Small nucleolar RNA snoR99: a 96-nucleotide sequence from Kingdonia uniflora. Gene Ontology terms of the family: RNA processing and nucleolus. The organism belongs to Kingdonia, within Eukaryota. The literature on the family includes a 2002 paper in Curr Biol by Marker et al., "Experimental RNomics: identification of 140 candidates for small non-messenger RNAs in the plant Arabidopsis thaliana". By type it is an H/ACA-box small nucleolar RNA.
RNA sequence: GUACUUCUGGGAUGAAUUAGUGCUAAAUAUAUCGUUUGUAUCAUUUUGUCAGCAAAUCUGUUAGUGUUUUGUUGAUCAUUUGAAGAUGGAAUAUAU
Numbered sequence: 001g002u003a004c005u006u007c008u009g010g011g012a013u014g015a016a017u018u019a020g021u022g023c024u025a026a027a028u029a030u031a032u033c034g035u036u037u038g039u040a041u042c043a044u045u046u047u048g049u050c051a052g053c054a055a056a057u058c059u060g061u062u063a064g065u066g067u068u069u070u071g072u073u074g075a076u077c078a079u080u081u082g083a084a085g086a087u088g089g090a091a092u093a094u095a096u
Stems, first nucleotide, its partner, number of pairs: 032089005048076008